[Rfam]
The family of this 133-nucleotide RNA sequence from Ailuropoda melanoleuca is "Small nucleolar RNA SNORA22".
Rfam's curators write: ACA22 is a member of the H/ACA class of snoRNA that guide the sites of modification of uridines to pseudouridines.
Rfam classes the family as an H/ACA-box small nucleolar RNA.
The source organism's lineage runs through Eukaryota, Amniota, Theria, Ursidae and Ailuropoda.
It scores 84 bits against the family's covariance model.

RNA sequence: CUACACUUAAAACAGUGAGAUGGCGUAAUAGUUCCCUUGGCUUUGACACUGUGCUAAGGCGAUGUGUGUCCUUUCCCCCUGCAUUGAAAGGACUGUUUAUCCUCUUAAAUGCAUUCAGAAAGUCAGCACAUUA
Numbered sequence: 001c002u003a004c005a006c007u008u009a010a011a012a013c014a015g016u017g018a019g020a021u022g023g024c025g026u027a028a029u030a031g032u033u034c035c036c037u038u039g040g041c042u043u044u045g046a047c048a049c050u051g052u053g054c055u056a057a058g059g060c061g062a063u064g065u066g067u068g069u070c071c072u073u074u075c076c077c078c079c080u081g082c083a084u085u086g087a088a089a090g091g092a093c094u095g096u097u098u099a100u101c102c103u104c105u106u107a108a109a110u111g112c113a114u115u116c117a118g119a120a121a122g123u124c125a126g127c128a129c130a131u132u133a
Stems, first nucleotide, its partner, number of pairs: 004053003013045002016040001018038002022034001023032002056072001058070004079118003082111004086106002089103004